The family of this 104-nucleotide sequence from Plutella xylostella is "mir-8517 microRNA precursor family". Gene Ontology terms of the family: miRNA-mediated post-transcriptional gene silencing and RISC complex. The family's consensus secondary structure was predicted with RNAalifold. The match comes from Rfam's covariance-model search (77 bits). NCBI's taxonomy places the organism under Eukaryota, Opisthokonta, Hexapoda, Aparaglossata, Plutella.

[Rfam]
RNA sequence: UUACAAUACGUUUUAACUAAUAAACUGUUUUGUCCCUCUCUGUCAAAGAACAAAUUUUUGUCGGAGAGGGACAAAACAGUUUAUUAGUUAAAACGUUCUGUAAC
Numbered sequence: 001u002u003a004c005a006a007u008a009c010g011u012u013u014u015a016a017c018u019a020a021u022a023a024a025c026u027g028u029u030u031u032g033u034c035c036c037u038c039u040c041u042g043u044c045a046a047a048g049a050a051c052a053a054a055u056u057u058u059u060g061u062c063g064g065a066g067a068g069g070g071a072c073a074a075a076a077c078a079g080u081u082u083a084u085u086a087g088u089u090a091a092a093a094c095g096u097u098c099u100g101u102a103a104c
Base pairs, nucleotide, nucleotide: 001103002102003101004100005099011093012092013091014090015089016088017087018086019085020084021083022082023081024080025079026078027077028076033065034064035063049059050058052056